[Rfam]
RNA: Hairpin ribozyme 1 from viruses-like metatranscriptomes
Nucleotides: 091
Base pairs, nucleotide, nucleotide: 001043002042003041004040009035010034011033012032013031016028017027018026019025044091045090046089047088048087056077057076058075060073061072062071
Number, partner (000 for none) and nucleotide at each position: 001043u002042a003041u004040c005000a006000g007000u008000g009035u010034g011033u012032g013031g014000a015000a016028g017027a018026g019025a020000u021000g022000a023000g024000c025019u026018c027017u028016c029000a030000a031013c032012c033011a034010c035009a036000u037000g038000a039000a040004g041003a042002u043001a044091g045090c046089c047088a048087g049000g050000g051000a052000a053000a054000c055000a056077u057076a058075c059000c060073c061072g062071g063000a064000a065000c066000g067000a068000a069000u070000u071062c072061c073060g074000a075058g076057u077056a078000g079000c080000a081000c082000c083000u084000u085000a086000a087048c088047u089046g090045g091044c